Rfam assigns this 164-nucleotide RNA sequence from Carnobacterium sp. 17-4 to the family "M-box riboswitch aptamer (ykoK leader)". A reference for the family is Ramesh et al. (2011), "Insights into metalloregulation by M-box riboswitch RNAs via structural analysis of manganese-bound complexes", J Mol Biol. Its family is annotated with response to magnesium ion and regulation of gene expression in the Gene Ontology. Rfam describes the family as follows. M-box riboswitch, also know as ykoK leader is described as a metaloregulatory RNA that sense divalent metals and function as a genetic control element of genes related to divalent metal transport in bacteria. It was first reported upstream of the B.subtilis ykoK gene and genes with related functions in other bacteria. The source organism's lineage runs through Bacteria, Bacillota, Lactobacillales, Carnobacteriaceae and Carnobacterium.

[Rfam]
RNA sequence: UAAGACUUCUGUUAGGUGAGGCUCCUAUAUGGACACACGCUGCUGCCCAAAAACGUCGAGAGACACCAAUGGGUCAACAGGAAUAAUCGAAUUAAGGUUAUUUUUAAUGUAGCUGAUGGACAAUCUACGCCAUAUAGUGCUAAAACUCAACGAUGGAGAUGGUU
Numbered sequence: 001u002a003a004g005a006c007u008u009c010u011g012u013u014a015g016g017u018g019a020g021g022c023u024c025c026u027a028u029a030u031g032g033a034c035a036c037a038c039g040c041u042g043c044u045g046c047c048c049a050a051a052a053a054c055g056u057c058g059a060g061a062g063a064c065a066c067c068a069a070u071g072g073g074u075c076a077a078c079a080g081g082a083a084u085a086a087u088c089g090a091a092u093u094a095a096g097g098u099u100a101u102u103u104u105u106a107a108u109g110u111a112g113c114u115g116a117u118g119g120a121c122a123a124u125c126u127a128c129g130c131c132a133u134a135u136a137g138u139g140c141u142a143a144a145a146c147u148c149a150a151c152g153a154u155g156g157a158g159a160u161g162g163u164u
Base pairs, nucleotide, nucleotide: 005160007158008157009156010155011151012150013095015147016146017145020141021140022139025137026136027135028134029133030132031131032130039113040112041111042110043109045074046073047072048071049070055064056063057062080104081103082102083101086098087097088096115125116124117123